A member of the RNA family "Glycine riboswitch aptamer" from Sphingomonas sp. EC-HK361, 91 nucleotides long. Its family is annotated with glycine biosynthetic process in the Gene Ontology.
[Rfam]
RNA sequence: UGGGCAUGCGCGGGAGAGAGCGGGCCCAAGCCCGCCGCCGAAGGAGCAACCACCCCGGAAUCUCUCAGGCAGACGGGACCGCGCACGCCAA
Numbered sequence: 001u002g003g004g005c006a007u008g009c010g011c012g013g014g015a016g017a018g019a020g021c022g023g024g025c026c027c028a029a030g031c032c033c034g035c036c037g038c039c040g041a042a043g044g045a046g047c048a049a050c051c052a053c054c055c056c057g058g059a060a061u062c063u064c065u066c067a068g069g070c071a072g073a074c075g076g077g078a079c080c081g082c083g084c085a086c087g088c089c090a091a
Stems, first nucleotide, its partner, number of pairs: 007085007020035004037070003040066002044064003050058002